[Rfam]
RNA sequence: CAACACCGCCACUGCUCUUAAACCAAGACCUAUAGGCAGUAUAAUACUUCGUCUUUCAUACCUGUAAGUGAGGGAUUUACAGGAAUAAGUUUCGCAU
Numbered sequence: 001c002a003a004c005a006c007c008g009c010c011a012c013u014g015c016u017c018u019u020a021a022a023c024c025a026a027g028a029c030c031u032a033u034a035g036g037c038a039g040u041a042u043a044a045u046a047c048u049u050c051g052u053c054u055u056u057c058a059u060a061c062c063u064g065u066a067a068g069u070g071a072g073g074g075a076u077u078u079a080c081a082g083g084a085a086u087a088a089g090u091u092u093c094g095c096a097u
Base pairs, nucleotide, nucleotide: 012039013038014037015036016035019034020033025055026054027053028052029051061083062082063081064080065079066078067077

Overview:
Rfam assigns this 97-nucleotide RNA to the family "PhotoRC-II RNA". Pairs were carried over by alignment from the consensus structure, which is taken from published work. Rfam classes the family as a cis-regulatory element.